[Rfam]
RNA sequence: AUCAAGCUCCGUGCGUCCACGGUGACUGCAAGGCUCCUCUCAGUGGAGGAAGCCUGCGACCUCACUCCUCCCCAUUCCGCCCGUUCAAAGUUCGGGUAUGGGGCGAAGGACGUUAGGAGCCAU
Numbered sequence: 001a002u003c004a005a006g007c008u009c010c011g012u013g014c015g016u017c018c019a020c021g022g023u024g025a026c027u028g029c030a031a032g033g034c035u036c037c038u039c040u041c042a043g044u045g046g047a048g049g050a051a052g053c054c055u056g057c058g059a060c061c062u063c064a065c066u067c068c069u070c071c072c073c074a075u076u077c078c079g080c081c082c083g084u085u086c087a088a089a090g091u092u093c094g095g096g097u098a099u100g101g102g103g104c105g106a107a108g109g110a111c112g113u114u115a116g117g118a119g120c121c122a123u
Stems, first nucleotide, its partner, number of pairs: 006120005013113006022065004028057002032053001035050005068103004074097004079091002

The family of this 123-nucleotide RNA is "Hepatitis C virus J7880 RNA".
By type it is a cis-regulatory element.
On this family, see Mauger et al., Proc Natl Acad Sci U S A 2015: "Functionally conserved architecture of hepatitis C virus RNA genomes".